[Rfam]
RNA: Alphaproteobacteria transfer-messenger RNA
Organism: Gemmobacter megaterium
RNA sequence: GCCCUUGCAGAGCCGGGCGCAUCGCCCUAUGUAGAUAGUGUUCGCAGGCGGCAACGCUUGGGGACUAUGGGCAUAAACGCGCACGUAAUAAGCGGAUCGGACCCGGGGGCGGUACCCGGCGGCUCCACCAAUCACCCGUUCGUUGCGGGGGCAUGGGGCCGAAACAGGAUCGACGAACGUCCAAAGGUGUUUGCUUUGUCUCGGUGAGCUACCACCGUUAUCGGUGCAAAAGUACAGUUGCCAACGACAACCGUGCUCCGGUCGCUCUGGCUGCGUAAGCAGCUCGGGUAACCGAAACUUAAGCCCUUGCGCUUAGCCGCGUAAGGCGGGGUUCGCAGGUACCUGGCAACAGAAACCUGCACU
Numbered sequence: 001g002c003c004c005u006u007g008c009a010g011a012g013c014c015g016g017g018c019g020c021a022u023c024g025c026c027c028u029a030u031g032u033a034g035a036u037a038g039u040g041u042u043c044g045c046a047g048g049c050g051g052c053a054a055c056g057c058u059u060g061g062g063g064a065c066u067a068u069g070g071g072c073a074u075a076a077a078c079g080c081g082c083a084c085g086u087a088a089u090a091a092g093c094g095g096a097u098c099g100g101a102c103c104c105g106g107g108g109g110c111g112g113u114a115c116c117c118g119g120c121g122g123c124u125c126c127a128c129c130a131a132u133c134a135c136c137c138g139u140u141c142g143u144u145g146c147g148g149g150g151g152c153a154u155g156g157g158g159c160c161g162a163a164a165c166a167g168g169a170u171c172g173a174c175g176a177a178c179g180u181c182c183a184a185a186g187g188u189g190u191u192u193g194c195u196u197u198g199u200c201u202c203g204g205u206g207a208g209c210u211a212c213c214a215c216c217g218u219u220a221u222c223g224g225u226g227c228a229a230a231a232g233u234a235c236a237g238u239u240g241c242c243a244a245c246g247a248c249a250a251c252c253g254u255g256c257u258c259c260g261g262u263c264g265c266u267c268u269g270g271c272u273g274c275g276u277a278a279g280c281a282g283c284u285c286g287g288g289u290a291a292c293c294g295a296a297a298c299u300u301a302a303g304c305c306c307u308u309g310c311g312c313u314u315a316g317c318c319g320c321g322u323a324a325g326g327c328g329g330g331g332u333u334c335g336c337a338g339g340u341a342c343c344u345g346g347c348a349a350c351a352g353a354a355a356c357c358u359g360c361a362c363u
Stems, first nucleotide, its partner, number of pairs: 040065004069201005079194002081190004093179002097176003103119005120161007202217004208227002211225003329344004335360006
Dot-bracket structure: .......................................((((..................))))...(((((.....((((((........((..(((...(((((.......)))))(((((((............................)))))))............))).)).......))))..))..)))))((((..[[.[[[)))).....]]]]].....................................................................................................[[[[..((((((]]]]..........))))))...